About this RNA: Group II catalytic intron D1-D4-3: a 171-nucleotide RNA sequence from Plesiocystis pacifica. It is one of the family's seed sequences.

[Rfam]
RNA sequence: CCAAGGGCGACUGAGGGUCUGAAAGAAGCGUGAAACGAACCAGCGGGUCGACGCACAGAAACCGGAUCAGAGGCGGGGCGCCGGGGGCGAGCGUGCCAGAGAACGCGAAGCUCCUCGUGGCCGAACACGGCGUCACGUGCAUCCGGCGAUCGCGCUGGGAAGGCCGGUGUC
Numbered sequence: 001c002c003a004a005g006g007g008c009g010a011c012u013g014a015g016g017g018u019c020u021g022a023a024a025g026a027a028g029c030g031u032g033a034a035a036c037g038a039a040c041c042a043g044c045g046g047g048u049c050g051a052c053g054c055a056c057a058g059a060a061a062c063c064g065g066a067u068c069a070g071a072g073g074c075g076g077g078g079c080g081c082c083g084g085g086g087g088c089g090a091g092c093g094u095g096c097c098a099g100a101g102a103a104c105g106c107g108a109a110g111c112u113c114c115u116c117g118u119g120g121c122c123g124a125a126c127a128c129g130g131c132g133u134c135a136c137g138u139g140c141a142u143c144c145g146g147c148g149a150u151c152g153c154g155c156u157g158g159g160a161a162g163g164c165c166g167g168u169g170u171c
Stems, first nucleotide, its partner, number of pairs: 001016002005012002028171001036163001040158006046151005062146006073138003077134007085113004091106004